[Rfam]
RNA sequence: CCACUCACGUGUCCUUAUCACUUUUCCAGCCAGCUUUCAUACUGUAACUGUUGGACGGAGAACUGAUAAGGGUUUGUGUGUGU
Numbered sequence: 001c002c003a004c005u006c007a008c009g010u011g012u013c014c015u016u017a018u019c020a021c022u023u024u025u026c027c028a029g030c031c032a033g034c035u036u037u038c039a040u041a042c043u044g045u046a047a048c049u050g051u052u053g054g055a056c057g058g059a060g061a062a063c064u065g066a067u068a069a070g071g072g073u074u075u076g077u078g079u080g081u082g083u
Stems, first nucleotide, its partner, number of pairs: 012072009022062006030054002
This 83-nucleotide sequence from Salvator merianae belongs to the Rfam family "mir-184 microRNA precursor family". Rfam links the family to the GO terms gene silencing by miRNA and RISC complex. A search with the family's covariance model found it, with a score of 77 bits.